The family of this 456-nucleotide sequence from Trichocoleus sp. FACHB-262 is "Bacterial RNase P class A". For this family Rfam cites "Ribonuclease P: unity and diversity in a tRNA processing ribozyme" (Frank and Pace, Annu Rev Biochem, 1998). About the family: Ribonuclease P (RNase P) is a ubiquitous endoribonuclease, found in archaea, bacteria and eukarya as well as chloroplasts and mitochondria. The organism belongs to Trichocoleus, within Bacteria. The match comes from Rfam's covariance-model search (238 bits). It is annotated as a ribozyme. Rfam links the family to the GO terms dimeric ribonuclease P complex, tRNA processing and ribonuclease P activity.
[Rfam]
RNA sequence: AGAGUUGGUGUAGGUGGUUGCGGACUUGGUAGGAGUGAGAAACUCAUUCCAGCGCGCUAAGGCAUCGCGCUUUAAGCCAGUCUGAGGAAAGUCCGGGCUCCCCAAAGACCAGACUUGCUGGGUAACGCCCAGUGCGGGUGACCGUGAGGAGAGUGCCACAGAAACAUACCGCCAACGGAGAUCUUUUUAUUUUUAAUGAACAAGUUCAUUAAAAAUAAAAGAAAUCGCGGGUAAGGGUGCAAGGGUGCGGUAAGAGCGCACCAGCAGCAUCGAGAGGUGCUGGCUCGGUAAACCCCGGUCGGGAGCAAGGUCGCGGGAACAAGGGUUGGUCUUUUUCCUGUUCCUAAUGCAAAUACCGCUAGAGGCGUUUGGUAACAAACGUCCCAGAUAGAUAACCGCCUUCCAAGGUGCCUAGCACUGAGGAAAACAGAACCCGGCUUAUGUCCAACUCUUCCG
Numbered sequence: 001a002g003a004g005u006u007g008g009u010g011u012a013g014g015u016g017g018u019u020g021c022g023g024a025c026u027u028g029g030u031a032g033g034a035g036u037g038a039g040a041a042a043c044u045c046a047u048u049c050c051a052g053c054g055c056g057c058u059a060a061g062g063c064a065u066c067g068c069g070c071u072u073u074a075a076g077c078c079a080g081u082c083u084g085a086g087g088a089a090a091g092u093c094c095g096g097g098c099u100c101c102c103c104a105a106a107g108a109c110c111a112g113a114c115u116u117g118c119u120g121g122g123u124a125a126c127g128c129c130c131a132g133u134g135c136g137g138g139u140g141a142c143c144g145u146g147a148g149g150a151g152a153g154u155g156c157c158a159c160a161g162a163a164a165c166a167u168a169c170c171g172c173c174a175a176c177g178g179a180g181a182u183c184u185u186u187u188u189a190u191u192u193u194u195a196a197u198g199a200a201c202a203a204g205u206u207c208a209u210u211a212a213a214a215a216u217a218a219a220a221g222a223a224a225u226c227g228c229g230g231g232u233a234a235g236g237g238u239g240c241a242a243g244g245g246u247g248c249g250g251u252a253a254g255a256g257c258g259c260a261c262c263a264g265c266a267g268c269a270u271c272g273a274g275a276g277g278u279g280c281u282g283g284c285u286c287g288g289u290a291a292a293c294c295c296c297g298g299u300c301g302g303g304a305g306c307a308a309g310g311u312c313g314c315g316g317g318a319a320c321a322a323g324g325g326u327u328g329g330u331c332u333u334u335u336u337c338c339u340g341u342u343c344c345u346a347a348u349g350c351a352a353a354u355a356c357c358g359c360u361a362g363a364g365g366c367g368u369u370u371g372g373u374a375a376c377a378a379a380c381g382u383c384c385c386a387g388a389u390a391g392a393u394a395a396c397c398g399c400c401u402u403c404c405a406a407g408g409u410g411c412c413u414a415g416c417a418c419u420g421a422g423g424a425a426a427a428c429a430g431a432a433c434c435c436g437g438c439u440u441a442u443g444u445c446c447a448a449c450u451c452u453u454c455c456g
Base pairs, nucleotide, nucleotide: 001452002451003450004449005448006447007446008445012442013400014399015398016397017396018395019394021084022083023082024081025080026079028077089440090439091438093437094436095435096434097433098305099304100303101302107333108332112300113299114298116297117296118132119131120130121129122128133147134145135144136143137142148295149294153293154292155289156288157287169236170235171232172231173230176227177226178225244262245261246260247259248258249257264284265282266281267280268279269278270277271276309357310356311355319348322345323344324343328334364383365382366381367380368379369378370377371376